[Rfam]
RNA sequence: CUCUUAUCAAGAGCAGGCGGAGGGUAAAAUGGCCCGAUGAAGCCCAGCAACCGACCAUAAUACCGUUGUGAAACGGGGCGCGUUAAGAUUUUGCGCCGGAAUGGACAAAUCCAUUCCGCAAGGCACGGUGCUAAUUCCACUGGAAAGAAACUUUUCCAGAAGAUGAGAG
Numbered sequence: 001c002u003c004u005u006a007u008c009a010a011g012a013g014c015a016g017g018c019g020g021a022g023g024g025u026a027a028a029a030u031g032g033c034c035c036g037a038u039g040a041a042g043c044c045c046a047g048c049a050a051c052c053g054a055c056c057a058u059a060a061u062a063c064c065g066u067u068g069u070g071a072a073a074c075g076g077g078g079c080g081c082g083u084u085a086a087g088a089u090u091u092u093g094c095g096c097c098g099g100a101a102u103g104g105a106c107a108a109a110u111c112c113a114u115u116c117c118g119c120a121a122g123g124c125a126c127g128g129u130g131c132u133a134a135u136u137c138c139a140c141u142g143g144a145a146a147g148a149a150a151c152u153u154u155u156c157c158a159g160a161a162g163a164u165g166a167g168a169g
Stems, first nucleotide, its partner, number of pairs: 001169008013045001016044003022035003030139003046132004051128002053124001055122001136161001141158006